This 170-nucleotide part of an RNA from Cercophora samala belongs to the Rfam family "Ascomycota telomerase RNA". Clan: Telomerase clan. On this family, see Qi et al., Nucleic Acids Res 2013: "The common ancestral core of vertebrate and fungal telomerase RNAs". The base pairs follow the family's consensus structure. The family's RNA type in Rfam is non-coding RNA gene.
[Rfam]
RNA sequence: ACAACCGUGUCUUUGACACAACCUUCCUUUGGCUGUGUGUUCCGAAAGGGGCAUAUCAGUUGGAGACGACAGCGCGGUUUUUAAGGAUGUCUUUUGUCCGCGCGUUAAUGCCCUCCUUGGCCUGCCAUUUAUGGUACUGGGUGGAGAGGAAUCAAAAACUAGUCCCUGUU
Dot-bracket structure: ......(((.......))).....(((((((((((((((...(....)...)))).)))))))))..))................(((((.(((((..............((((((.....(....(..((...)).))...)))).))...)))))))..)))......